[Rfam]
RNA sequence: CACCCUCUUUGUGGCCACGUUCAAGUGGACUGAGCGAGCUGCAAACGCCGUGUUAACGGCCACUCUUACGCUUUCAAACCGAGUAUCUCACGCAGGAAUUAGCGUUAAGGGAGUGUCCGUAAACGGCGUUUGCAGCUCGCUCAAGUCCAACUUGAACGGGGCCACAAAGAGGUGAUAUGCCCGUGUAGCAGCAUGCGGACGUCGUGGGGUCUCCUCAGAGUCGGUUUGCUUGAAGUGCAGACCUAAGUGGGUGGUAGACUCCAUCUAAGGCUAAAUAUGACCACAUGACCGAUAGCACACAAGUACCGUGAGGGAAAGGUGAAAAGAACUUUGAAGAGAGAGUUCAAGAGUACGUGAAACUGAGCUGAUGAAAG
Numbered sequence: 001c002a003c004c005c006u007c008u009u010u011g012u013g014g015c016c017a018c019g020u021u022c023a024a025g026u027g028g029a030c031u032g033a034g035c036g037a038g039c040u041g042c043a044a045a046c047g048c049c050g051u052g053u054u055a056a057c058g059g060c061c062a063c064u065c066u067u068a069c070g071c072u073u074u075c076a077a078a079c080c081g082a083g084u085a086u087c088u089c090a091c092g093c094a095g096g097a098a099u100u101a102g103c104g105u106u107a108a109g110g111g112a113g114u115g116u117c118c119g120u121a122a123a124c125g126g127c128g129u130u131u132g133c134a135g136c137u138c139g140c141u142c143a144a145g146u147c148c149a150a151c152u153u154g155a156a157c158g159g160g161g162c163c164a165c166a167a168a169g170a171g172g173u174g175a176u177a178u179g180c181c182c183g184u185g186u187a188g189c190a191g192c193a194u195g196c197g198g199a200c201g202u203c204g205u206g207g208g209g210u211c212u213c214c215u216c217a218g219a220g221u222c223g224g225u226u227u228g229c230u231u232g233a234a235g236u237g238c239a240g241a242c243c244u245a246a247g248u249g250g251g252u253g254g255u256a257g258a259c260u261c262c263a264u265c266u267a268a269g270g271c272u273a274a275a276u277a278u279g280a281c282c283a284c285a286u287g288a289c290c291g292a293u294a295g296c297a298c299a300c301a302a303g304u305a306c307c308g309u310g311a312g313g314g315a316a317a318g319g320u321g322a323a324a325a326g327a328a329c330u331u332u333g334a335a336g337a338g339a340g341a342g343u344u345c346a347a348g349a350g351u352a353c354g355u356g357a358a359a360c361u362g363a364g365c366u367g368a369u370g371a372a373a374g
Stems, first nucleotide, its partner, number of pairs: 003104001109214002112212002115210004127201007135192003139189003145162001147161002151158001165169001171181002223243007249266005306313002329340004
Rfam assigns this 374-nucleotide part of an RNA from Thrips palmi to the family "Eukaryotic large subunit ribosomal RNA". It scores 2076 bits against the family's covariance model. The family's consensus secondary structure is taken from published work. The source organism's lineage runs through Eukaryota, Protostomia, Arthropoda, Terebrantia and Thrips.